[Rfam]
RNA sequence: AUAUUAACCUGGCAGGGGAGAUGCCGUGAUCAGGAAGGUGGUUCCCCAGGGCGAGGCUUAUCCAUUGCCCCCUGGAUGUGCCAACCCCUGUGAUUUCCCCAAAGGUGGGGAACUGGACUGCAUGGUUUGUGGUAGUGGGGGACUGUGGUCACACUCUGG
Numbered sequence: 001a002u003a004u005u006a007a008c009c010u011g012g013c014a015g016g017g018g019a020g021a022u023g024c025c026g027u028g029a030u031c032a033g034g035a036a037g038g039u040g041g042u043u044c045c046c047c048a049g050g051g052c053g054a055g056g057c058u059u060a061u062c063c064a065u066u067g068c069c070c071c072c073u074g075g076a077u078g079u080g081c082c083a084a085c086c087c088c089u090g091u092g093a094u095u096u097c098c099c100c101a102a103a104g105g106u107g108g109g110g111a112a113c114u115g116g117a118c119u120g121c122a123u124g125g126u127u128u129g130u131g132g133u134a135g136u137g138g139g140g141g142a143c144u145g146u147g148g149u150c151a152c153a154c155u156c157u158g159g
Stems, first nucleotide, its partner, number of pairs: 012121004016047003020044002023042005048089004053085001055082003059078005091116001093114001094112003098108002145154003
RNA: U1 spliceosomal RNA
Organism: Molossus molossus